RNA sequence: CGUCGGCCCUCCAAAGGCCGGCACCGAAGAGGCUUGUUUCUCCUUGCCCGCAGUGCGGUUGGGGUUCCCCCUACCAAUCCAAGGCAGCUUCCGGGUGCUCUGCGCCCGCAAUGCCCGUCGCGUCUCCAAAGCGCGCCGAGCGUCGCGUCGCAUC
Numbered sequence: 001c002g003u004c005g006g007c008c009c010u011c012c013a014a015a016g017g018c019c020g021g022c023a024c025c026g027a028a029g030a031g032g033c034u035u036g037u038u039u040c041u042c043c044u045u046g047c048c049c050g051c052a053g054u055g056c057g058g059u060u061g062g063g064g065u066u067c068c069c070c071c072u073a074c075c076a077a078u079c080c081a082a083g084g085c086a087g088c089u090u091c092c093g094g095g096u097g098c099u100c101u102g103c104g105c106c107c108g109c110a111a112u113g114c115c116c117g118u119c120g121c122g123u124c125u126c127c128a129a130a131g132c133g134c135g136c137c138g139a140g141c142g143u144c145g146c147g148u149c150g151c152a153u154c
Base pairs, nucleotide, nucleotide: 002022003021004020005019006018007017008016031048032047033046055134056133057132079095080094103117104116107113
Dot-bracket structure: .(((((((.......)))))))........(((............)))......(((.....................((.............)).......((..(.....)..))..............)))....................
Rfam assigns this 154-nucleotide RNA from Methylobacterium planeticum to the family "speF leader". This family is a putative regulatory RNA structure that is found upstream of the speF gene encoding ornithine decarboxylase in Agrobacterium tumefaciens and other alpha-proteobacteria. The organism belongs to Methylobacterium, within Bacteria.